[Rfam]
RNA: Histone 3' UTR stem-loop
RNA sequence: CCAAAGGCUCUUUUCAGAGCCCCCACUUUUUCAAAAGAAGAGUUG
Numbered sequence: 001c002c003a004a005a006g007g008c009u010c011u012u013u014u015c016a017g018a019g020c021c022c023c024c025a026c027u028u029u030u031u032c033a034a035a036a037g038a039a040g041a042g043u044u045g
Base pairs, nucleotide, nucleotide: 006021007020008019009018010017011016